The family of this 89-nucleotide RNA sequence from Diachasma alloeum is "mir-275 microRNA precursor family". A search with the family's covariance model found it, with a score of 58 bits. On this family, see Winter et al., Nucleic Acids Res 2007: "Anopheles gambiae miRNAs as actors of defence reaction against Plasmodium invasion". NCBI's taxonomy places the organism under Eukaryota, Arthropoda, Hymenoptera, Braconidae, Diachasma. Gene Ontology terms of the family: miRNA-mediated post-transcriptional gene silencing and RISC complex.

RNA sequence: UUGCUGCUCGUAACGGGCGUUACUCGGGUACUUCCGGCUGUGAUUAAGUACUAGUCAGGUACCUGAAGUAGCGCGCGAGACGAGUGAGC
Numbered sequence: 001u002u003g004c005u006g007c008u009c010g011u012a013a014c015g016g017g018c019g020u021u022a023c024u025c026g027g028g029u030a031c032u033u034c035c036g037g038c039u040g041u042g043a044u045u046a047a048g049u050a051c052u053a054g055u056c057a058g059g060u061a062c063c064u065g066a067a068g069u070a071g072c073g074c075g076c077g078a079g080a081c082g083a084g085u086g087a088g089c
Stems, first nucleotide, its partner, number of pairs: 009082003014077001017074006030060002033058001036056004